[Rfam]
RNA: Small Cajal body specific RNA 23
RNA sequence: AUGCUCACAAGAACACUUCUCCUGCCUUGUGGCUGUGAUGAGUGCUGGGAAAAUGUGAGCUAGAGCAUGAGUAUUGCUUUGGGAGUGUCACAUUCCAGGCCACAUGGGACACUACAGUUUCCAAUACAACA
Numbered sequence: 001a002u003g004c005u006c007a008c009a010a011g012a013a014c015a016c017u018u019c020u021c022c023u024g025c026c027u028u029g030u031g032g033c034u035g036u037g038a039u040g041a042g043u044g045c046u047g048g049g050a051a052a053a054u055g056u057g058a059g060c061u062a063g064a065g066c067a068u069g070a071g072u073a074u075u076g077c078u079u080u081g082g083g084a085g086u087g088u089c090a091c092a093u094u095c096c097a098g099g100c101c102a103c104a105u106g107g108g109a110c111a112c113u114a115c116a117g118u119u120u121c122c123a124a125u126a127c128a129a130c131a
Base pairs, nucleotide, nucleotide: 003060004059005058006057007056008055012046014044017042018041019040025032026031071127073125074124075123076122079117080116081115084113085112086111087110088109089108091106093102